[Rfam]
RNA sequence: UGGCACACAUGUAGACCUUGCCCGGUGCUCUCUGUGGUCAGGCAAGGGGGACAGUGUGUGCAAGAGUGACGCGGGGCUCCUGCCCGCUCUGCCCAGCUGGGUCGUGGCUGGGUGGACCGCAGCGCUCCCACAUCC
Numbered sequence: 001u002g003g004c005a006c007a008c009a010u011g012u013a014g015a016c017c018u019u020g021c022c023c024g025g026u027g028c029u030c031u032c033u034g035u036g037g038u039c040a041g042g043c044a045a046g047g048g049g050g051a052c053a054g055u056g057u058g059u060g061c062a063a064g065a066g067u068g069a070c071g072c073g074g075g076g077c078u079c080c081u082g083c084c085c086g087c088u089c090u091g092c093c094c095a096g097c098u099g100g101g102u103c104g105u106g107g108c109u110g111g112g113u114g115g116a117c118c119g120c121a122g123c124g125c126u127c128c129c130a131c132a133u134c135c
Stems, first nucleotide, its partner, number of pairs: 003061006016047007024039001073128004078124001081121003093111005

Rfam assigns this 135-nucleotide sequence from Fukomys damarensis to the family "Small nucleolar RNA SNORA58". The family is grouped with related families in Rfam's "SNORA44 clan". From the family's description: ACA52 is a member of the H/ACA class of snoRNA that guide the sites of modification of uridines to pseudouridines. The family's consensus secondary structure was predicted with PFOLD. For this family Rfam cites "RNomics: an experimental approach that identifies 201 candidates for novel, small, non-messenger RNAs in mouse" (Huttenhofer et al., EMBO J, 2001).